[Rfam]
RNA sequence: CAAGUGGGACGACCCGCCUGCGCUUCUGUUGUCUGGGGACGACCCCA
Numbered sequence: 001c002a003a004g005u006g007g008g009a010c011g012a013c014c015c016g017c018c019u020g021c022g023c024u025u026c027u028g029u030u031g032u033c034u035g036g037g038g039a040c041g042a043c044c045c046c047a
Stems, first nucleotide, its partner, number of pairs: 001020002004017005034047005
Shown here is a 47-nucleotide sequence from Serratia fonticola, a member of the family "Guanidine-II riboswitch aptamer (mini-ykkC)". A reference for the family is Huang et al. (2017), "The Structure of the Guanidine-II Riboswitch", Cell Chem Biol. The family has 72 seed sequences and 1,589 matches in Rfam 15.1. About the family: Simpler in structure and has fewer highly conserved nucleotide positions than the ykkC-yxkD leader. NCBI's taxonomy places the organism under Bacteria, Pseudomonadati, Pseudomonadota, Gammaproteobacteria, Serratia.